[Rfam]
RNA sequence: GUGAGGAGUCUCCUACAGGCGAAGCCUGUAUUAGGAUGGAGACAACGACCUGCCGCAUCACGAAGUGAUGGGGCGAUACCCGAG
Number, nucleotide and partner (000 for none) at each position: 001g000002u000003g000004a000005g000006g000007a000008g043009u042010c041011u040012c039013c038014u030015a029016c028017a027018g026019g025020c000021g000022a000023a000024g000025c019026c018027u017028g016029u015030a014031u000032u000033a000034g000035g000036a000037u000038g013039g012040a011041g010042a009043c008044a000045a000046c000047g000048a000049c000050c000051u000052g074053c073054c072055g000056c070057a069058u000059c000060a066061c065062g000063a000064a000065g061066u060067g000068a000069u057070g056071g000072g054073g053074c052075g000076a000077u000078a000079c000080c000081c000082g000083a000084g000
RNA: GA-cis RNA